[Rfam]
RNA sequence: UGCCGGCUUUCCAUCAGCCGGGGUACUAAAGAGGCACACCAUCAUUGCCGUAAGUGCGGUUGGGUAUGAUUCCCUCCAAUCCCAUGGCAGACAAAGCCGAAUAAUGCUCCUGGCAGGGCGUUGUUCACAUUUGCGCCUUGAGCGUAUGCGAUUGAU
Numbered sequence: 001u002g003c004c005g006g007c008u009u010u011c012c013a014u015c016a017g018c019c020g021g022g023g024u025a026c027u028a029a030a031g032a033g034g035c036a037c038a039c040c041a042u043c044a045u046u047g048c049c050g051u052a053a054g055u056g057c058g059g060u061u062g063g064g065u066a067u068g069a070u071u072c073c074c075u076c077c078a079a080u081c082c083c084a085u086g087g088c089a090g091a092c093a094a095a096g097c098c099g100a101a102u103a104a105u106g107c108u109c110c111u112g113g114c115a116g117g118g119c120g121u122u123g124u125u126c127a128c129a130u131u132u133g134c135g136c137c138u139u140g141a142g143c144g145u146a147u148g149c150g151a152u153u154g155a156u
Stems, first nucleotide, its partner, number of pairs: 001023001003021006033049004056136003086098002108118003